[Rfam]
RNA: terC RNA
Organism: Pseudooceanicola albus
RNA sequence: CCCUGCGACCGGGCCCCUCUGGCAAGCGUCUUGCGGCACGCUUGUGAUGUCGGCGCAUUCC
Number, nucleotide and partner (000 for none) at each position: 001c000002c000003c000004u000005g000006c055007g054008a000009c053010c052011g051012g050013g000014c000015c000016c000017c000018u000019c000020u000021g000022g045023c044024a043025a042026g041027c040028g039029u038030c000031u000032u000033g000034c000035g000036g000037c000038a029039c028040g027041c026042u025043u024044g023045u022046g000047a000048u000049g000050u012051c011052g010053g009054c007055g006056c000057a000058u000059u000060c000061c000